This 105-nucleotide RNA from Aquisalibacillus elongatus belongs to the Rfam family "SAM riboswitch aptamer (S box leader)".
RNA sequence: CUCUUAUCACGAGAGGUGGAGGGACUGGCCCUAUGAAACCCGGCAACCAUCAGGUAACUGACAGGUGCUAAAUCCUGCAAAGCGUCAAGCUUUGGAAGAUAAGAG
Number, nucleotide and partner (000 for none) at each position: 001c105002u104003c103004u102005u101006a100007u099008c098009a000010c000011g000012a000013g041014a000015g040016g039017u038018g000019g000020a000021g031022g030023g029024a000025c077026u000027g075028g074029c023030c022031c021032u000033a000034u000035g000036a000037a000038a017039c016040c015041c013042g069043g068044c067045a066046a000047c065048c064049a000050u061051c060052a059053g000054g000055u000056a000057a000058c000059u052060g051061a050062c000063a000064g048065g047066u045067g044068c043069u042070a000071a000072a000073u097074c028075c027076u000077g025078c094079a093080a092081a091082g090083c089084g000085u000086c000087a000088a000089g083090c082091u081092u080093u079094g078095g000096a000097a073098g008099a007100u006101a005102a004103g003104a002105g001